The record is a 123-nucleotide RNA from Mannheimia haemolytica, which matches "Histidine operon leader" in Rfam.
The base pairs follow the family's consensus structure, which is taken from published work.
Gene Ontology term of the family: histidine biosynthetic process.
The family's RNA type in Rfam is cis-regulatory leader.
Rfam describes the family as follows. At least 6 amino acid operons are known to be regulated by attenuation. In each a leader sequence of 150-200 bp is found upstream of the first gene in the operon. This leader sequence can assume two different secondary structures known as the terminator and the anti-terminator structure. In each case the leader also codes for very short peptide sequence that is rich in the end product amino acid of the operon. The terminator structure is recognised as a termination signal for RNA polymerase and the operon is not transcribed. This structure forms when the cell has an excess of the regulatory amino acid and ribosome movement over the leader transcript is not impeded. When there is a deficiency of the charged tRNA of the regulatory amino acid the ribosome translating the leader peptide stalls and the antiterminator structure can form. This allows RNA polymerase to transcribe the operon. In the Rfam alignment the consensus structure is of the terminator structure.
Lineage of the source: Bacteria > Pseudomonadota > Gammaproteobacteria > Mannheimia > Mannheimia haemolytica.
The literature on the family includes a 1982 paper in Annu Rev Genet by Kolter and Yanofsky, "Attenuation in amino acid biosynthetic operons".

[Rfam]
RNA sequence: UCACCACCACACUUUAACCUGAUAUCUUUCGGGCAUUUGGUGUGUGCGGAAGAUAACUCUUCCGAGCAAGUGUAGCAAAUCAAUAAAGAUCUCUCGGAAGGCAACUUUCGAGAGAUUUUUUUA
Numbered sequence: 001u002c003a004c005c006a007c008c009a010c011a012c013u014u015u016a017a018c019c020u021g022a023u024a025u026c027u028u029u030c031g032g033g034c035a036u037u038u039g040g041u042g043u044g045u046g047c048g049g050a051a052g053a054u055a056a057c058u059c060u061u062c063c064g065a066g067c068a069a070g071u072g073u074a075g076c077a078a079a080u081c082a083a084u085a086a087a088g089a090u091c092u093c094u095c096g097g098a099a100g101g102c103a104a105c106u107u108u109c110g111a112g113a114g115a116u117u118u119u120u121u122u123a
Stems, first nucleotide, its partner, number of pairs: 008044003012040002018033005045065001047064007085120016